[Rfam]
RNA: tRNA
Organism: Capitella teleta
RNA sequence: UCCCAGAUGGUCUAGUGGUUAGGAUUCUGCGCUCUCACCGCCGCGGCCGGGGUUAGAUUCCCCGUCUGGGAG
Numbered sequence: 001u002c003c004c005a006g007a008u009g010g011u012c013u014a015g016u017g018g019u020u021a022g023g024a025u026u027c028u029g030c031g032c033u034c035u036c037a038c039c040g041c042c043g044c045g046g047c048c049g050g051g052g053u054u055a056g057a058u059u060c061c062c063c064g065u066c067u068g069g070g071a072g
Base pairs, nucleotide, nucleotide: 001071002070003069004068005067006066007065010025011024012023013022027043029041030040031039048064049063050062051061052060